[Rfam]
RNA sequence: CCCGACCAAGGCACACCGCUCGAAAGGGCGGCUCGCGAAGCCACGGGCCUUCCACCGCAACCGCGGUCACGGCAGCCGGGCCACCGCAG
Numbered sequence: 001c002c003c004g005a006c007c008a009a010g011g012c013a014c015a016c017c018g019c020u021c022g023a024a025a026g027g028g029c030g031g032c033u034c035g036c037g038a039a040g041c042c043a044c045g046g047g048c049c050u051u052c053c054a055c056c057g058c059a060a061c062c063g064c065g066g067u068c069a070c071g072g073c074a075g076c077c078g079g080g081c082c083a084c085c086g087c088a089g
Base pairs, nucleotide, nucleotide: 001089003086004085011036012035016031017030018029019028020027021026034075040081041080042079044078045077046076047073048072049071